Rfam assigns this 90-nucleotide RNA from Aliidiomarina minuta to the family "c-di-GMP-I riboswitch aptamer". The match comes from Rfam's covariance-model search (74 bits). The family's consensus secondary structure is taken from published work. GEMM was predicted in a large-scale screen for bacterial structured RNA regulatory elements. Genes associated with GEMM are involved in a diverse array of functions, including chemotaxis regulation, signal transduction, secretion and chitin.

RNA sequence: UUAUUGAAAGGGCAAACCCAUCGAAAGGUGGGGACGCAAAGCUACCUGUCUAAGGAAUGGUUACCAUUCUAUGAUCGAGGGGACGCCACA
Numbered sequence: 001u002u003a004u005u006g007a008a009a010g011g012g013c014a015a016a017c018c019c020a021u022c023g024a025a026a027g028g029u030g031g032g033g034a035c036g037c038a039a040a041g042c043u044a045c046c047u048g049u050c051u052a053a054g055g056a057a058u059g060g061u062u063a064c065c066a067u068u069c070u071a072u073g074a075u076c077g078a079g080g081g082g083a084c085g086c087c088a089c090a
Stems, first nucleotide, its partner, number of pairs: 012037002017032006042082002045080003048075003055069004
The source organism's lineage runs through Bacteria, Gammaproteobacteria, Alteromonadales, Idiomarinaceae and Aliidiomarina.